[Rfam]
This 52-nucleotide sequence from Sphenodon punctatus belongs to the Rfam family "MAT2A 3'UTR stem loop C". Rfam 15.1 lists 275 matches to the family in 162 species. The base pairs follow the family's consensus structure, which is taken from published work. A search with the family's covariance model found it, with a score of 71 bits. Taxonomically the source falls in Sphenodon (Eukaryota, Deuterostomia, Gnathostomata, Sauria). It is annotated as a cis-regulatory element.
RNA sequence: GCGUUCUGAAGAGCUGGUGUAGCUACAGAGAAACCAGCUACCUUCAGAGCAU
Dot-bracket structure: (.(((((((..(((((((((....))......)))))))....))))))).)